[Rfam]
RNA: Streptomyces sRNA scr5239
Organism: Streptomyces clavuligerus
RNA sequence: CUUCCGCUCCUCACCGCACAGAGGAGUGGAACGAGGCCCCGGCGCUCUCUGCCCUGACUGCGCCCGGUCCUCCCCCAUGGCCGCGCGGGCCCGCACACUCGCGUCGGUCAGUCACUCCGGGCUGCGGUGCCGGACGGGUUGAGGGUCCCGUCGGGCGC
Numbered sequence: 001c002u003u004c005c006g007c008u009c010c011u012c013a014c015c016g017c018a019c020a021g022a023g024g025a026g027u028g029g030a031a032c033g034a035g036g037c038c039c040c041g042g043c044g045c046u047c048u049c050u051g052c053c054c055u056g057a058c059u060g061c062g063c064c065c066g067g068u069c070c071u072c073c074c075c076c077a078u079g080g081c082c083g084c085g086c087g088g089g090c091c092c093g094c095a096c097a098c099u100c101g102c103g104u105c106g107g108u109c110a111g112u113c114a115c116u117c118c119g120g121g122c123u124g125c126g127g128u129g130c131c132g133g134a135c136g137g138g139u140u141g142a143g144g145g146u147c148c149c150g151u152c153g154g155g156c157g158c
Stems, first nucleotide, its partner, number of pairs: 003030004008025005033072004039066001041064002044061002046057002078110006087100003113129004118124002132152001134151005